RNA sequence: CCAAAGGCUCUUUUCAGAGCCACCCACAAGUGCACUGAGAAGCUGU
Numbered sequence: 001c002c003a004a005a006g007g008c009u010c011u012u013u014u015c016a017g018a019g020c021c022a023c024c025c026a027c028a029a030g031u032g033c034a035c036u037g038a039g040a041a042g043c044u045g046u
Stems, first nucleotide, its partner, number of pairs: 006021006
RNA: Histone 3' UTR stem-loop